[Rfam]
RNA sequence: UGAGUAAGCAGGACAGCGGCGGGAACAGUGCCGUAAGGCCGUUUCCGAGGAAAGUCCGAGCUCCAAAGGGCAGGAUAGCUGCUAACGGCAGCCGGAGGCGACUCUAGGGACAGUGCAACAGAGAGAUACCGCCGAAGCGUUGAUUUCCACGCUGGCAAGGGUGGAAAGGCGAGGUAAGAGCUCACCAGCGUCCAGGAGACUGGACGGCUAUGUAAACCCUAUCCGGAGCAACACCAUUGGGAGAACGCAAAGCGCCGGCCCGGCGUGUUCUCGAGAAGGUGGCUGGAGCCUUAUGGCGACGUAAGGCCUAGAUAGAUCGUUGUCGAAAACAGAACUCGGCUUAUCUGCUUAGUCACAAG
Numbered sequence: 001u002g003a004g005u006a007a008g009c010a011g012g013a014c015a016g017c018g019g020c021g022g023g024a025a026c027a028g029u030g031c032c033g034u035a036a037g038g039c040c041g042u043u044u045c046c047g048a049g050g051a052a053a054g055u056c057c058g059a060g061c062u063c064c065a066a067a068g069g070g071c072a073g074g075a076u077a078g079c080u081g082c083u084a085a086c087g088g089c090a091g092c093c094g095g096a097g098g099c100g101a102c103u104c105u106a107g108g109g110a111c112a113g114u115g116c117a118a119c120a121g122a123g124a125g126a127u128a129c130c131g132c133c134g135a136a137g138c139g140u141u142g143a144u145u146u147c148c149a150c151g152c153u154g155g156c157a158a159g160g161g162u163g164g165a166a167a168g169g170c171g172a173g174g175u176a177a178g179a180g181c182u183c184a185c186c187a188g189c190g191u192c193c194a195g196g197a198g199a200c201u202g203g204a205c206g207g208c209u210a211u212g213u214a215a216a217c218c219c220u221a222u223c224c225g226g227a228g229c230a231a232c233a234c235c236a237u238u239g240g241g242a243g244a245a246c247g248c249a250a251a252g253c254g255c256c257g258g259c260c261c262g263g264c265g266u267g268u269u270c271u272c273g274a275g276a277a278g279g280u281g282g283c284u285g286g287a288g289c290c291u292u293a294u295g296g297c298g299a300c301g302u303a304a305g306g307c308c309u310a311g312a313u314a315g316a317u318c319g320u321u322g323u324c325g326a327a328a329a330c331a332g333a334a335c336u337c338g339g340c341u342u343a344u345c346u347g348c349u350u351a352g353u354c355a356c357a358a359g
Base pairs, nucleotide, nucleotide: 001355002354003353005351006350007349008348009347010346011344012324013323014322015321016320017319018318020047021046022045023044024043025042026041028039052342053341054340056339057338058337059336060335061228062227063226064225068261069260070259071258073224074223075222076221077220078092079091080090081089082088093107094105095104096103097102108219109218113217114216115213116212117211129160130159131156132155133154137152138151139150140149168186169185171183172182173181188208189206190205191204192203193202194201195200232281233280234279235278241272242271243270244269245268246267252266253265254264255263256262288307289306290305291304292303293302294301295300
RNA: Bacterial RNase P class A